[Rfam]
RNA sequence: UGCUCCCUGGGAUAUGCGUUGAUUGGUAAUGUCCCUGUGCCGAUAUUUACAAACCCAGGGUGAAUGCUUUCGUUGACAUUGUGUAUGCUCGGCUUGUACCGAGAAACCUUAGGAAAUGAACGUUUACCCGCCUUGAACCUACGGUUCAAGGGCUACACCGGCAACGGUGUCUCGGGGAGCAA
Numbered sequence: 001u002g003c004u005c006c007c008u009g010g011g012a013u014a015u016g017c018g019u020u021g022a023u024u025g026g027u028a029a030u031g032u033c034c035c036u037g038u039g040c041c042g043a044u045a046u047u048u049a050c051a052a053a054c055c056c057a058g059g060g061u062g063a064a065u066g067c068u069u070u071c072g073u074u075g076a077c078a079u080u081g082u083g084u085a086u087g088c089u090c091g092g093c094u095u096g097u098a099c100c101g102a103g104a105a106a107c108c109u110u111a112g113g114a115a116a117u118g119a120a121c122g123u124u125u126a127c128c129c130g131c132c133u134u135g136a137a138c139c140u141a142c143g144g145u146u147c148a149a150g151g152g153c154u155a156c157a158c159c160g161g162c163a164a165c166g167g168u169g170u171c172u173c174g175g176g177g178a179g180c181a182a
Stems, first nucleotide, its partner, number of pairs: 002180014017166003031153004036148002039145003058129003062125005069119001071118004077113001083107002088103005
The family of this 182-nucleotide RNA sequence from Shewanella intestini is "6S / SsrS RNA". The match comes from Rfam's covariance-model search (120 bits). The organism belongs to Shewanella, within Bacteria.